[Rfam]
The record is a 76-nucleotide sequence, which matches "dfrA-dnaX RNA" in Rfam.
By type it is a small RNA.
The base pairs follow the family's consensus structure, which is taken from published work.
RNA sequence: AUGCCUUGUGAUAAAGGUACAAUAAUUUCAUCAUAAUUACAAUAGAAAAGAAAUAAAAAAGGAAUUAUGAUAUAAU
Dot-bracket structure: .............................((((((((..........................)))))))).....